[Rfam]
RNA sequence: UAACAGCCAGCUGUAACGGAGUGCUUCGCGCACGGGUUGGAACGACAG
Numbered sequence: 001u002a003a004c005a006g007c008c009a010g011c012u013g014u015a016a017c018g019g020a021g022u023g024c025u026u027c028g029c030g031c032a033c034g035g036g037u038u039g040g041a042a043c044g045a046c047a048g
Stems, first nucleotide, its partner, number of pairs: 008039005021033004

The record is a 48-nucleotide RNA sequence from Anaerofilum sp. An201, which matches "ssnA RNA" in Rfam. The source organism's lineage runs through Bacteria, Bacillota, Clostridia, Oscillospiraceae and Anaerofilum.